[Rfam]
RNA sequence: GUAACGGUCACCGCAAGGUUUCUGGUGGUGACACUAGACAGACUUCCGCGUUUCGCUCAGCGAACCGCGACCGGCACCGCCGGAAUUUAACCCGCCGGAAUUGAUACCGGC
Numbered sequence: 001g002u003a004a005c006g007g008u009c010a011c012c013g014c015a016a017g018g019u020u021u022c023u024g025g026u027g028g029u030g031a032c033a034c035u036a037g038a039c040a041g042a043c044u045u046c047c048g049c050g051u052u053u054c055g056c057u058c059a060g061c062g063a064a065c066c067g068c069g070a071c072c073g074g075c076a077c078c079g080c081c082g083g084a085a086u087u088u089a090a091c092c093c094g095c096c097g098g099a100a101u102u103g104a105u106a107c108c109g110g111c
Stems, first nucleotide, its partner, number of pairs: 010019003021038006047069004052064004071083004094111005
The family of this 111-nucleotide RNA sequence is "Pseudomon-groES RNA". Pairs were carried over by alignment from the consensus structure, which is taken from published work. Rfam classes the family as a cis-regulatory element.